[Rfam]
RNA sequence: CACGCGGUGUCGGUUUUGAGCUUGAUAGCGGCGUGGCUUCAAUUUGAGGU
Numbered sequence: 001c002a003c004g005c006g007g008u009g010u011c012g013g014u015u016u017u018g019a020g021c022u023u024g025a026u027a028g029c030g031g032c033g034u035g036g037c038u039u040c041a042a043u044u045u046g047a048g049g050u
Stems, first nucleotide, its partner, number of pairs: 001035005007029002011024003014020001